[Rfam]
RNA sequence: CGUAUCAGUUAGUUGUUUAUGGUAUCCCCAUAAGCAACUUCCUUUGUCCAUGACCUUUUUCGUUUCACGAGAAACGAAGAGAAAAAGGGAAUUGUCCUUGAUCGGAACGAGCAAGAUCAGAAAAUUAAUGGACAAGGGAAAAGAGGAGUUAA
Numbered sequence: 001c002g003u004a005u006c007a008g009u010u011a012g013u014u015g016u017u018u019a020u021g022g023u024a025u026c027c028c029c030a031u032a033a034g035c036a037a038c039u040u041c042c043u044u045u046g047u048c049c050a051u052g053a054c055c056u057u058u059u060u061c062g063u064u065u066c067a068c069g070a071g072a073a074a075c076g077a078a079g080a081g082a083a084a085a086a087g088g089g090a091a092u093u094g095u096c097c098u099u100g101a102u103c104g105g106a107a108c109g110a111g112c113a114a115g116a117u118c119a120g121a122a123a124a125u126u127a128a129u130g131g132a133c134a135a136g137g138g139a140a141a142a143g144a145g146g147a148g149u150u151a152a
Stems, first nucleotide, its partner, number of pairs: 004149002009144002013037009039140013055089002059083002091125003095121002097115004
Shown here is a 152-nucleotide RNA sequence, a member of the family "Enterococcus-1 RNA".
Rfam classes the family as a small RNA.
The family's consensus secondary structure is taken from published work.
Rfam's curators put it in the seed alignment.